Shown here is a 443-nucleotide part of an RNA from Thermoplasmatales archaeon B_DKE, a member of the family "Archaeal large subunit ribosomal RNA". A search with the family's covariance model found it, with a score of 2755 bits. Taxonomically the source falls in Thermoplasmatales (Archaea, Methanobacteriati, Thermoplasmatota, Thermoplasmata).
[Rfam]
Nucleotides: 443
Base pairs, nucleotide, nucleotide: 001384002383003382004381005380006379011024012023013022014021015020026135027133028132029131030130031129032128036121037120038119040118041117042116043115044114045113046112047111052106053104054103060099061098064095065094066093067092068091069090073088074087075086076085077084078083139163140162141161142160143159144158145157146156168179169178170177183356184355185354186353187352188351189350193346194345195344202343203342204341205340206339207338208337224317225316226315227314228313230311231310232309233308234307235306236305244301245300246299248297250274251273252272255269256268257267275279280295284293285292357374358373359370360369361368362367385438387435388434389433390432391431392430393429394428395427396426403422404421405420406419407418408417409416410415
Number, partner (000 for none) and nucleotide at each position: 001384c002383c003382c004381c005380u006379c007000g008000a009000u010000a011024c012023u013022a014021c015020c016000c017000g018000c019000a020015g021014g022013u023012a024011g025000a026135c027133u028132u029131c030130a031129g032128u033000g034000g035000a036121g037120a038119u039000g040118c041117u042116c043115a044114g045113c046112g047111a048000g049000g050000u051000a052106g053104a054103g055000c056000u057000a058000c059000u060099g061098a062000a063000u064095a065094g066093u067092u068091g069090g070000u071000u072000a073088g074087c075086a076085g077084c078083c079000g080000a081000a082000a083078g084077g085076c086075u087074g088073c089000g090069c091068c092067g093066a094065c095064u096000u097000a098061u099060c100000a101000a102000a103054c104053u105000c106052c107000g108000a109000a110000c111047u112046u113045g114044u115043u116042g117041a118040g119038a120037u121036c122000g123000u124000a125000g126000a127000a128032g129031c130030u131029g132028g133027a134000u135026g136000c137000u138000a139163g140162g141161g142160u143159g144158c145157a146156g147000a148000g149000a150000u151000a152000a153000g154000c155000c156146c157145u158144g159143c160142a161141c162140c163139c164000g165000u166000g167000a168179a169178g170177g171000g172000a173000a174000c175000a176000u177170c178169c179168u180000a181000g182000a183356c184355g185354a186353g187352g188351g189350u190000u191000a192000a193346g194345g195344u196000c197000c198000c199000u200000a201000a202343a203342a204341c205340u206339a207338a208337c209000u210000a211000a212000g213000u214000g215000c216000a217000a218000a219000u220000u221000a222000a223000a224317g225316g226315g227314g228313u229000u230311u231310g232309u233308g234307g235306c236305c237000a238000a239000a240000g241000a242000c243000a244301g245300u246299g247000u248297g249000g250274a251273g252272g253000u254000u255269g256268g257267c258000u259000u260000a261000g262000a263000a264000g265000c266000a267257g268256c269255c270000a271000u272252c273251c274250u275279u276000u277000a278000a279275a280295g281000a282000g283000u284293g285292c286000g287000u288000a289000a290000c291000a292285g293284c294000u295280c296000a297248c298000u299246c300245a301244c302000c303000g304000a305236g306235g307234c308233u309232a310231c311230a312000u313228g314227u315226c316225c317224c318000g319000a320000a321000g322000a323000u324000g325000g326000a327000a328000g329000g330000g331000g332000c333000u334000a335000a336000a337208g338207u339206u340205a341204g342203u343202u344195a345194c346193c347000g348000a349000g350189a351188c352187c353186u354185u355184c356183g357374a358373g359370c360369a361368c362367c363000g364000a365000a366000a367362g368361g369360u370359g371000a372000u373358c374357u375000g376000g377000u378000a379006g380005g381004g382003g383002g384001g385438c386000g387435u388434g389433c390432c391431a392430u393429g394428u395427g396426g397000g398000c399000a400000g401000a402000a403422g404421u405420u406419u407418c408417u409416c410415c411000g412000a413000g414000a415410g416409g417408a418407g419406g420405a421404g422403u423000g424000g425000a426396c427395c428394g429393c430392a431391u432390g433389g434388u435387a436000u437000c438385g439000u440000g441000g442000a443000u